[Rfam]
RNA sequence: UGAUAGCAAUGAAGCGCGAGGUUGCUGCCACAAAGCUGGCAGGUUUUCCGUGGAGCGAAUGUCAAGUUUGAAAACUGACGACAA
Numbered sequence: 001u002g003a004u005a006g007c008a009a010u011g012a013a014g015c016g017c018g019a020g021g022u023u024g025c026u027g028c029c030a031c032a033a034a035g036c037u038g039g040c041a042g043g044u045u046u047u048c049c050g051u052g053g054a055g056c057g058a059a060u061g062u063c064a065a066g067u068u069u070g071a072a073a074a075c076u077g078a079c080g081a082c083a084a
Stems, first nucleotide, its partner, number of pairs: 014051003018048004025042005060083004066079003